[Rfam]
RNA sequence: GGCCACCCUCUGUGGGGCGAUCGAUCGCAUGGCUCCCAGAUUGAUCGCCCUGCAGAGGGAGGCC
Numbered sequence: 001g002g003c004c005a006c007c008c009u010c011u012g013u014g015g016g017g018c019g020a021u022c023g024a025u026c027g028c029a030u031g032g033c034u035c036c037c038a039g040a041u042u043g044a045u046c047g048c049c050c051u052g053c054a055g056a057g058g059g060a061g062g063c064c
Stems, first nucleotide, its partner, number of pairs: 001064004006059021031036001
The record is a 64-nucleotide RNA from Cnephaeus nilssonii, which matches "mir-9242 microRNA precursor family" in Rfam. The match comes from Rfam's covariance-model search (64 bits). Rfam 15.1 lists 940 matches to the family in 18 species.